Shown here is a 283-nucleotide sequence from a Candidatus Altarchaeota archaeon, a member of the family "Archaeal RNase P".
Pairs were carried over by alignment from the consensus structure, which is taken from published work.
On this family, see Frank and Pace, Annu Rev Biochem 1998: "Ribonuclease P: unity and diversity in a tRNA processing ribozyme".
Rfam's curators write: Ribonuclease P (RNase P) is a ubiquitous endoribonuclease, found in archaea, bacteria and eukarya as well as chloroplasts and mitochondria. Its best characterised activity is the generation of mature 5'-ends of tRNAs by cleaving the 5'-leader elements of precursor-tRNAs. Cellular RNase Ps are ribonucleoproteins. RNA from bacterial RNase Ps retains its catalytic activity in the absence of the protein subunit, i.e. it is a ribozyme.
Rfam links the family to the GO terms tRNA processing, multimeric ribonuclease P complex and ribonuclease P activity.
RNA sequence: GGCAGCGGCCGGACGACCAUCGGUUUUCGAACUGAGGAAGGGGAUCCAUCAACAAAACUGCAGGGGGGUAACCCCUACGCUGAGAGGCGUGCUCUAUCACAGAAACGACACGCGCCUCUGCCAACUAUGAUGCGGGAACGCUGAGGUUCCAGGGGGCCGCGAUGCAACGGUUCAAUCUGCAGGAUGCAAGGCGGUUUCGCCGCUUAGUCGAAUGUCGUCAUGUGGGCUUCCAGGCUUCAAUUGUCUGGACCCGCUAACAGAAGAGUCCCUACGAGCCGCAGCC
Numbered sequence: 001g002g003c004a005g006c007g008g009c010c011g012g013a014c015g016a017c018c019a020u021c022g023g024u025u026u027u028c029g030a031a032c033u034g035a036g037g038a039a040g041g042g043g044a045u046c047c048a049u050c051a052a053c054a055a056a057a058c059u060g061c062a063g064g065g066g067g068g069u070a071a072c073c074c075c076u077a078c079g080c081u082g083a084g085a086g087g088c089g090u091g092c093u094c095u096a097u098c099a100c101a102g103a104a105a106c107g108a109c110a111c112g113c114g115c116c117u118c119u120g121c122c123a124a125c126u127a128u129g130a131u132g133c134g135g136g137a138a139c140g141c142u143g144a145g146g147u148u149c150c151a152g153g154g155g156g157c158c159g160c161g162a163u164g165c166a167a168c169g170g171u172u173c174a175a176u177c178u179g180c181a182g183g184a185u186g187c188a189a190g191g192c193g194g195u196u197u198c199g200c201c202g203c204u205u206a207g208u209c210g211a212a213u214g215u216c217g218u219c220a221u222g223u224g225g226g227c228u229u230c231c232a233g234g235c236u237u238c239a240a241u242u243g244u245c246u247g248g249a250c251c252c253g254c255u256a257a258c259a260g261a262a263g264a265g266u267c268c269c270u271a272c273g274a275g276c277c278g279c280a281g282c283c
Base pairs, nucleotide, nucleotide: 001283002282003281005279006278007277008276009275010273011272012219013218014217015216016215017214021034022033023032024031025030039270040269041268043266045264046263047186048185049184050183058182059181060180061179062178063076064075065074066073067072077090078089079088080087081086091177096172098170111161112160113159115155116154117153118152119151120150132141133140190201191200192199193198